[Rfam]
RNA sequence: CCGGCAAGAACCAUGUGAAUCAAGGAGUGUAGUGAUUCACACGGUUCUCGCAC
Number, nucleotide and partner (000 for none) at each position: 001c000002c000003g000004g051005c050006a000007a048008g047009a046010a045011c044012c043013a000014u041015g040016u039017g038018a037019a036020u035021c034022a033023a000024g000025g000026a000027g000028u000029g000030u000031a000032g000033u022034g021035a020036u019037u018038c017039a016040c015041a014042c000043g012044g011045u010046u009047c008048u007049c000050g005051c004052a000053c000